[Rfam]
RNA sequence: AGUAAGGCCAAACUCUGCACUGUUUCCUUGUCUGUAGCCAAGUCUAUGUGCCUUUGAGUUGGCCACCUGGGUGAGGACCUCCU
Numbered sequence: 001a002g003u004a005a006g007g008c009c010a011a012a013c014u015c016u017g018c019a020c021u022g023u024u025u026c027c028u029u030g031u032c033u034g035u036a037g038c039c040a041a042g043u044c045u046a047u048g049u050g051c052c053u054u055u056g057a058g059u060u061g062g063c064c065a066c067c068u069g070g071g072u073g074a075g076g077a078c079c080u081c082c083u
Stems, first nucleotide, its partner, number of pairs: 001083002004080001006078001008076002012072004016065002020062003024058003030051002033048005
This 83-nucleotide sequence from Homo sapiens belongs to the Rfam family "mir-571 microRNA precursor family". The base pairs follow the family's consensus structure, which was predicted with RNAalifold. Taxonomically the source falls in Homo (Eukaryota, Deuterostomia, Sarcopterygii, Simiiformes). The match comes from Rfam's covariance-model search (65 bits).